Rfam assigns this 76-nucleotide RNA sequence from Callithrix jacchus to the family "mir-320 microRNA precursor family". The source organism's lineage runs through Eukaryota, Craniata, Mammalia, Euarchontoglires and Callithrix. The literature on the family includes a 2006 paper in Genome Res by Berezikov et al., "Many novel mammalian microRNA candidates identified by extensive cloning and RAKE analysis". The base pairs follow the family's consensus structure, which was predicted with RNAalifold.

Nucleotides: 076
Base pairs, nucleotide, nucleotide: 014059015058016057017056018055021052022051023050024049025048029044030043031042032041033040034039
Number, partner (000 for none) and nucleotide at each position: 001000c002000u003000g004000a005000u006000u007000u008000u009000u010000g011000g012000c013000c014059u015058u016057c017056u018055c019000u020000u021052c022051c023050u024049a025048g026000u027000u028000c029044u030043u031042u032041c033040u034039g035000g036000a037000g038000u039034u040033g041032g042031g043030a044029a045000a046000a047000a048025u049024u050023g051022g052021g053000u054000u055018g056017a057016g058015a059014g060000g061000g062000c063000g064000a065000a066000a067000a068000a069000a070000a071000a072000a073000a074000a075000a076000c